[Rfam]
RNA: Archaeal large subunit ribosomal RNA, nucleotides 8 to 549
RNA sequence: UGUGUAUGCCAACCAGUGGAUGGCUUGGCUCAAGCGCUGAAGAAGGACGUGCCAAGCUGCGAUAAGCCUCGGCGAGGUGCAUGGAACCGUCGAACCGAGGAUAUCCUAAUGGGAACUCCCAGCCUUAGGGCUGAUCCUUAAGGAUCGGGAACGCCCCGGAUUGAAACAUCUUAGUAGGGGCAGGAAGAGAAAUCAAAUCGAGAUGCCGUCAGUAACGGCGAGUGAACGCGGCAGAGCCCAAACCGAAUCCCUUCGGGGAGAUGUGGUGUUAUAAGCCUGGCUCAUUACAGUUCUCUCUUGCGAAGUUGAAGUUGCCUGGAACGGCACGCCAAAGAGUGUGAUAGCCACGUAAAUAUAAGCAGAUAGGGCUGGAGCCUUGUCUUGAGUACCGUGGGUCGGAUAUCUCGCGGAAAUUUGGGAGACACCAACUUCCAAGGCUAAAUACGUCUUGAGACCGAUAGCGCAGUAGUAGGGUGACCGAAAGCUGAAAAGUACCCCAUAGAGGGCGGUGCAAAGUGCCUGAAAUUGGUUGGUGAUGGAGC
Numbered sequence: 001u002g003u004g005u006a007u008g009c010c011a012a013c014c015a016g017u018g019g020a021u022g023g024c025u026u027g028g029c030u031c032a033a034g035c036g037c038u039g040a041a042g043a044a045g046g047a048c049g050u051g052c053c054a055a056g057c058u059g060c061g062a063u064a065a066g067c068c069u070c071g072g073c074g075a076g077g078u079g080c081a082u083g084g085a086a087c088c089g090u091c092g093a094a095c096c097g098a099g100g101a102u103a104u105c106c107u108a109a110u111g112g113g114a115a116c117u118c119c120c121a122g123c124c125u126u127a128g129g130g131c132u133g134a135u136c137c138u139u140a141a142g143g144a145u146c147g148g149g150a151a152c153g154c155c156c157c158g159g160a161u162u163g164a165a166a167c168a169u170c171u172u173a174g175u176a177g178g179g180g181c182a183g184g185a186a187g188a189g190a191a192a193u194c195a196a197a198u199c200g201a202g203a204u205g206c207c208g209u210c211a212g213u214a215a216c217g218g219c220g221a222g223u224g225a226a227c228g229c230g231g232c233a234g235a236g237c238c239c240a241a242a243c244c245g246a247a248u249c250c251c252u253u254c255g256g257g258g259a260g261a262u263g264u265g266g267u268g269u270u271a272u273a274a275g276c277c278u279g280g281c282u283c284a285u286u287a288c289a290g291u292u293c294u295c296u297c298u299u300g301c302g303a304a305g306u307u308g309a310a311g312u313u314g315c316c317u318g319g320a321a322c323g324g325c326a327c328g329c330c331a332a333a334g335a336g337u338g339u340g341a342u343a344g345c346c347a348c349g350u351a352a353a354u355a356u357a358a359g360c361a362g363a364u365a366g367g368g369c370u371g372g373a374g375c376c377u378u379g380u381c382u383u384g385a386g387u388a389c390c391g392u393g394g395g396u397c398g399g400a401u402a403u404c405u406c407g408c409g410g411a412a413a414u415u416u417g418g419g420a421g422a423c424a425c426c427a428a429c430u431u432c433c434a435a436g437g438c439u440a441a442a443u444a445c446g447u448c449u450u451g452a453g454a455c456c457g458a459u460a461g462c463g464c465a466g467u468a469g470u471a472g473g474g475u476g477a478c479c480g481a482a483a484g485c486u487g488a489a490a491a492g493u494a495c496c497c498c499a500u501a502g503a504g505g506g507c508g509g510u511g512c513a514a515a516g517u518g519c520c521u522g523a524a525a526u527u528g529g530u531u532g533g534u535g536a537u538g539g540a541g542c
Stems, first nucleotide, its partner, number of pairs: 007535010022520001023485002027456002029453006035446002044107004048061003067100006076088003111120003134145004152183001153181005163170002193201002205232005215223002235439004243266003279376003289370004305354003311327001313326004330334001336348003389410007417433005472479002